[Rfam]
RNA: Pseudomonas rpsL leader
RNA sequence: GCCCAGGGCCUUGUCUUGACUGGGGGAUUGAGUCUCUUUAGACUCAUGCACCCCUAAAUUUGGCAGGGCGCUGAGCUCUGCCAUUUUGCUUUAGGGCAAUAGCGUCGAAAGACAACAGUGGAGCUUAUAGA
Number, nucleotide and partner (000 for none) at each position: 001g000002c000003c000004c018005a017006g016007g015008g014009c013010c000011u000012u000013g009014u008015c007016u006017u005018g004019a000020c000021u000022g053023g052024g051025g000026g049027a000028u000029u046030g045031a044032g000033u000034c041035u040036c000037u000038u000039u000040a035041g034042a000043c000044u031045c030046a029047u000048g000049c026050a000051c024052c023053c022054c000055u000056a000057a000058a000059u000060u000061u083062g082063g081064c080065a079066g078067g077068g076069c075070g000071c000072u000073g000074a000075g069076c068077u067078c066079u065080g064081c063082c062083a061084u000085u000086u000087u000088g000089c000090u000091u000092u000093a000094g000095g000096g000097c000098a128099a000100u000101a125102g124103c123104g113105u112106c111107g000108a000109a000110a000111g106112a105113c104114a000115a000116c000117a000118g000119u000120g000121g000122a000123g103124c102125u101126u000127a000128u098129a000130g000131a000